The family of this 162-nucleotide RNA from Paenibacillus albilobatus is "c-di-AMP riboswitch aptamer (ydaO/yuaA leader)".
RNA sequence: UCAUUUGAUUCGCUGAAUUUCCGUUUCGGCGGAAAACGGGGGAACCGGCCGUGAUGAUCAGCCAUUCGUCACAUGGGGUGAAUCUCGAAAUCGCAUUCGAGUAGGGCUACUCUUGGGUCCGAAUCCGACAGCUAACCUCGUAAGCGUUAGAAGAGAGGCUGC
Numbered sequence: 001u002c003a004u005u006u007g008a009u010u011c012g013c014u015g016a017a018u019u020u021c022c023g024u025u026u027c028g029g030c031g032g033a034a035a036a037c038g039g040g041g042g043a044a045c046c047g048g049c050c051g052u053g054a055u056g057a058u059c060a061g062c063c064a065u066u067c068g069u070c071a072c073a074u075g076g077g078g079u080g081a082a083u084c085u086c087g088a089a090a091u092c093g094c095a096u097u098c099g100a101g102u103a104g105g106g107c108u109a110c111u112c113u114u115g116g117g118u119c120c121g122a123a124u125c126c127g128a129c130a131g132c133u134a135a136c137c138u139c140g141u142a143a144g145c146g147u148u149a150g151a152a153g154a155g156a157g158g159c160u161g162c
Stems, first nucleotide, its partner, number of pairs: 011146004018035006036141006046075002076126003084101004104120004

A search with the family's covariance model found it, with a score of 96 bits.